[Rfam]
Nucleotides: 094
Stems, first nucleotide, its partner, number of pairs: 004042009014032001016030005061083005
Number, partner (000 for none) and nucleotide at each position: 001000a002000c003000c004042u005041g006040u007039c008038a009037c010036g011035c012034g013000c014032g015000c016030c017029c018028g019027c020026g021000c022000a023000c024000g025000c026020c027019g028018c029017g030016g031000a032014u033000c034012c035011g036010c037009g038008u039007g040006a041005c042004g043000a044000c045000g046000c047000a048000g049000a050000c051000a052000c053000a054000c055000c056000a057000c058000a059000c060000c061083g062082u063081g064080c065079c066000a067000c068000g069000g070000g071000a072000a073000g074000a075000a076000a077000c078000g079065g080064g081063c082062a083061c084000u085000u086000c087000a088000g089000g090000g091000c092000g093000u094000u

A member of the RNA family "nrdJ RNA" from Actinobacteria bacterium OK074, 94 nucleotides long. The match comes from Rfam's covariance-model search (57 bits). By type it is a small RNA. NCBI's taxonomy places the organism under Bacteria, Bacillati, Actinomycetota, Actinomycetes.